[Rfam]
RNA sequence: AUACAGUGCUUGGUUCCUAGUAGGUGUCCAGUAAGUGUUUGUGACAUAAUUUGUUUAUUGAGGACCUCCUAUCAAUCAAGCACUGUGCUAGGCUCUGG
Numbered sequence: 001a002u003a004c005a006g007u008g009c010u011u012g013g014u015u016c017c018u019a020g021u022a023g024g025u026g027u028c029c030a031g032u033a034a035g036u037g038u039u040u041g042u043g044a045c046a047u048a049a050u051u052u053g054u055u056u057a058u059u060g061a062g063g064a065c066c067u068c069c070u071a072u073c074a075a076u077c078a079a080g081c082a083c084u085g086u087g088c089u090a091g092g093c094u095c096u097g098g
Stems, first nucleotide, its partner, number of pairs: 003086013018071003022067004027062001029060009040049001